[Rfam]
RNA sequence: UAAUUGAGAUAUAAAAACACAGUUUCUGUUGGUAGUCAGAACCUGUACUUCUUUAGUAAGUGCAGCAGUAACCUGCCCUCCUGGGGUUGUCCGUUAUCUUUUAAUAAAUU
Numbered sequence: 001u002a003a004u005u006g007a008g009a010u011a012u013a014a015a016a017a018c019a020c021a022g023u024u025u026c027u028g029u030u031g032g033u034a035g036u037c038a039g040a041a042c043c044u045g046u047a048c049u050u051c052u053u054u055a056g057u058a059a060g061u062g063c064a065g066c067a068g069u070a071a072c073c074u075g076c077c078c079u080c081c082u083g084g085g086g087u088u089g090u091c092c093g094u095u096a097u098c099u100u101u102u103a104a105u106a107a108a109u110u
Base pairs, nucleotide, nucleotide: 006100007099008098009097010096011095022042023041025040026039027038028037043065044064045063046062047061048060049059050058075087076086077085078084
azaaromatic riboswitch aptamer (yjdF RNA): a 110-nucleotide sequence from Clostridium manihotivorum. Taxonomically the source falls in Clostridium (Bacteria, Bacillati, Clostridia, Clostridiaceae). The match comes from Rfam's covariance-model search (81 bits).